[Rfam]
Rfam assigns this 106-nucleotide RNA from Nicotiana sylvestris to the family "MIR6152 microRNA precursor family". Gene Ontology terms of the family: RISC complex and miRNA-mediated post-transcriptional gene silencing.

RNA sequence: UAGACAGAUUAUUGUAUUCAACUGUAUUUGACUGUAAUCACGACGUGAAACAGGAGAUUACAUUAUUUUUAAACGAAAAGUAAAUCAAUUAACAUAAUAGACUCCU
Numbered sequence: 001u002a003g004a005c006a007g008a009u010u011a012u013u014g015u016a017u018u019c020a021a022c023u024g025u026a027u028u029u030g031a032c033u034g035u036a037a038u039c040a041c042g043a044c045g046u047g048a049a050a051c052a053g054g055a056g057a058u059u060a061c062a063u064u065a066u067u068u069u070u071a072a073a074c075g076a077a078a079a080g081u082a083a084a085u086c087a088a089u090u091a092a093c094a095u096a097a098u099a100g101a102c103u104c105c106u
Base pairs, nucleotide, nucleotide: 003104004103009100010099011098012097013096014095015094017092018091020090021089023087024086026085027084028083029082031081032080044075045074046073047069048068049067050066052064053063